RNA sequence: GCGGCUUCCAUUGGGGAGUAGCCGCCCUGCACGGUCCGCCGGUCACGACUGGCGCGAUCGAUACCGCAGGGGCGUACGUCAACAGACUUGACCGCUUGCGGUUAUGGCGUGCGCAGCUUCCGAUAGCAGGUGCAAUGCCUGCUUCAGGGCCUGGCGAGACCGAUGACGCCGUCUUCCGGCUGGGCCGGGGAAGAC
Numbered sequence: 001g002c003g004g005c006u007u008c009c010a011u012u013g014g015g016g017a018g019u020a021g022c023c024g025c026c027c028u029g030c031a032c033g034g035u036c037c038g039c040c041g042g043u044c045a046c047g048a049c050u051g052g053c054g055c056g057a058u059c060g061a062u063a064c065c066g067c068a069g070g071g072g073c074g075u076a077c078g079u080c081a082a083c084a085g086a087c088u089u090g091a092c093c094g095c096u097u098g099c100g101g102u103u104a105u106g107g108c109g110u111g112c113g114c115a116g117c118u119u120c121c122g123a124u125a126g127c128a129g130g131u132g133c134a135a136u137g138c139c140u141g142c143u144u145c146a147g148g149g150c151c152u153g154g155c156g157a158g159a160c161c162g163a164u165g166a167c168g169c170c171g172u173c174u175u176c177c178g179g180c181u182g183g184g185c186c187g188g189g190g191a192a193g194a195c
Base pairs, nucleotide, nucleotide: 026070027069028068029067030066072114073113074112075111076110077109078108079107080106081105089104090103091102092101093100117193118192119191120190121189
Background
The record is a 195-nucleotide sequence from Cupriavidus gilardii, which matches "Manganese Mn2+ riboswitch aptamer (yybP-ykoY)" in Rfam. Rfam's curators write: This RNA was originally discovered in E. coli during a large scale screen and was named SraF. The family was later found to exist upstream of related families of protein genes in many bacteria, including the the yybP and ykoK genes in B. subtilis. The literature on the family includes a 2001 paper in Curr Biol by Argaman et al., "Novel small RNA-encoding genes in the intergenic regions of Escherichia coli". Taxonomically the source falls in Cupriavidus gilardii (Bacteria, Pseudomonadati, Pseudomonadota, Cupriavidus).